[Rfam]
Rfam assigns this 225-nucleotide RNA from Paenibacillus sp. J2TS4 to the family "Group II catalytic intron D1-D4-6". The base pairs follow the family's consensus structure. For this family Rfam cites "Group II introns: structure and catalytic versatility of large natural ribozymes" (Lehmann and Schmidt, Crit Rev Biochem Mol Biol, 2003). The source organism's lineage runs through Bacteria, Bacillati, Bacillota, Bacilli and Paenibacillus. Gene Ontology term of the family: Group II intron splicing. Group II introns are found in rRNA, tRNA and mRNA of organelles in fungi, plants and protists, and also in mRNA in bacteria.
RNA sequence: UGAACCCUGCUUGGAAAGGCGCCAACCACGCCACCAAUAACGAGUCUUGGAGCGGACAUGGUAACAGGUCCGUUUAAGCGUAGACAGAUAGGAUGCAGGCCUGAAAGUGAAUGAGCCUCGAAAUGCAGAAAUUGGGAAGGCCGACGGCGUCAUUUUACCGGAAGGCAACAUUCCACUAGGCGUAAUAGGUGAGUCUAGACGGGGCUUCCCCGGGGUCGAAGAGCC
Dot-bracket structure: ...........(((...((.(...[[..).)).))).((.(..((((((((((((((.((....)).))))))))...)).)))).).)).....................((.((((((.............(((((((((..(((..........)))...)))....((((.((((((.......]]..))))))..))))))))))))))))).)......